[Rfam]
Nucleotides: 100
Stems, first nucleotide, its partner, number of pairs: 002095006012084004017080004025071003029066001
Number, partner (000 for none) and nucleotide at each position: 001000g002095c003094a004093u005092c006091g007090g008000u009000u010000u011000a012084g013083c014082u015081c016000a017080g018079u019078g020077g021000u022000u023000u024000c025071u026070u027069c028000a029066c030000u031000g032000c033000c034000u035000g036000a037000g038000a039000c040000g041000u042000a043000g044000c045000u046000c047000u048000c049000u050000c051000u052000g053000c054000g055000c056000u057000c058000u059000c060000u061000g062000g063000g064000g065000u066029g067000c068000a069027g070026a071025g072000u073000u074000c075000a076000a077020u078019c079018a080017c081015g082014g083013g084012c085000g086000c087000u088000g089000u090007c091006c092005g093004g094003u095002g096000u097000u098000u099000u100000a
Annotation:
This 100-nucleotide sequence from Nothobranchius furzeri belongs to the Rfam family "Vault RNA". Rfam 15.1 lists 2,873 matches to the family in 431 species. The family's consensus secondary structure is taken from published work. From the family's description: This family of RNAs are found as part of the enigmatic vault ribonucleoprotein complex. The complex consists of a major vault protein (MVP), two minor vault proteins (VPARP and TEP1), and several small untranslated RNA molecules. It has been suggested that the vault complex is involved in drug resistance. The match comes from Rfam's covariance-model search (49 bits).